ALIL pseudoknot: a 129-nucleotide RNA sequence from Mycolicibacterium wolinskyi. Its family is annotated with positive regulation of translational frameshifting in the Gene Ontology. Taxonomically the source falls in Mycobacterium (subgen. Mycolicibacterium) (Bacteria, Bacillati, Actinomycetota, Mycobacteriaceae).

[Rfam]
RNA sequence: CGCGUUCGCGGCGGCGGAGGUCGACCGCCGUCUGCGGUGGUCGUCGACGACAUCGACGCGCACCGCGACCGGUUCGGGGUCGACCCGAUCUGCGCUGUGCCCACCGAGCACGGUACGCCGAUCGCCCCG
Numbered sequence: 001c002g003c004g005u006u007c008g009c010g011g012c013g014g015c016g017g018a019g020g021u022c023g024a025c026c027g028c029c030g031u032c033u034g035c036g037g038u039g040g041u042c043g044u045c046g047a048c049g050a051c052a053u054c055g056a057c058g059c060g061c062a063c064c065g066c067g068a069c070c071g072g073u074u075c076g077g078g079g080u081c082g083a084c085c086c087g088a089u090c091u092g093c094g095c096u097g098u099g100c101c102c103a104c105c106g107a108g109c110a111c112g113g114u115a116c117g118c119c120g121a122u123c124g125c126c127c128c129g
Stems, first nucleotide, its partner, number of pairs: 013029005075129005086124002089121002092118003